[Rfam]
The record is a 120-nucleotide sequence from Clostridium sp. AM33-3, which matches "FMN riboswitch aptamer (RFN element)" in Rfam. Its family is annotated with FMN binding in the Gene Ontology.
RNA sequence: UAAGUUCUUCGGGGCGGGGUGAGAUUCCCCACCGGCGGUUACAGUCCGCGACCUGCGUAAAGCAGCUGAUUUGGUGAGAUUCCAAAACCGACAGUAUAGUCUGGAUGAGAGAAGAGAUUG
Numbered sequence: 001u002a003a004g005u006u007c008u009u010c011g012g013g014g015c016g017g018g019g020u021g022a023g024a025u026u027c028c029c030c031a032c033c034g035g036c037g038g039u040u041a042c043a044g045u046c047c048g049c050g051a052c053c054u055g056c057g058u059a060a061a062g063c064a065g066c067u068g069a070u071u072u073g074g075u076g077a078g079a080u081u082c083c084a085a086a087a088c089c090g091a092c093a094g095u096a097u098a099g100u101c102u103g104g105a106u107g108a109g110a111g112a113a114g115a116g117a118u119u120g
Stems, first nucleotide, its partner, number of pairs: 003118001005116006017029003031100002033090002035049004044088002053065002070086005092103003
Rfam describes the family as follows. The RFN element is a highly conserved domain that is found frequently in the 5'-untranslated regions of prokaryotic mRNAs that encode for flavin mononucleotide (FMN) biosynthesis and transport proteins.